[Rfam]
Rfam assigns this 66-nucleotide RNA sequence from Roseateles sp. DAIF2 to the family "int-alpA RNA". Rfam describes the family as follows. Acidobacteria (1 example), Planctomycetes (1 example), Proteobacteria. The source organism's lineage runs through Bacteria, Pseudomonadati, Burkholderiales, Sphaerotilaceae and Roseateles. It is annotated as a small RNA. Pairs were carried over by alignment from the consensus structure, which is taken from published work.
Nucleotides: 066
Base pairs, nucleotide, nucleotide: 001053002052003051004050005049006048007047008046011021012020027043028042029041030040034066035065036064037063038062039061
Number, partner (000 for none) and nucleotide at each position: 001053g002052c003051c004050g005049c006048g007047c008046c009000u010000a011021g012020g013000c014000u015000g016000a017000u018000c019000c020012c021011c022000g023000a024000a025000a026000a027043c028042c029041u030040g031000u032000u033000u034066c035065c036064c037063u038062g039061a040030c041029g042028g043027g044000c045000u046008g047007g048006c049005g050004c051003g052002g053001c054000a055000c056000u057000u058000u059000c060000a061039u062038c063037a064036g065035g066034g